[Rfam]
RNA sequence: GUUAACAUCUUACCGGGCAGCAUUAGAUUACAUUUUAUACUUCUAAUACUGUCAGGUAAAGAUGUCCUC
Numbered sequence: 001g002u003u004a005a006c007a008u009c010u011u012a013c014c015g016g017g018c019a020g021c022a023u024u025a026g027a028u029u030a031c032a033u034u035u036u037a038u039a040c041u042u043c044u045a046a047u048a049c050u051g052u053c054a055g056g057u058a059a060a061g062a063u064g065u066c067c068u069c
Base pairs, nucleotide, nucleotide: 005065006064007063008062009061010059011058012057013056014055016053017052018051019050020049022047023046024045025044026043027042
Dot-bracket structure: ....((((((((((.(((((.((((((..............)))))).))))).))))).)))))....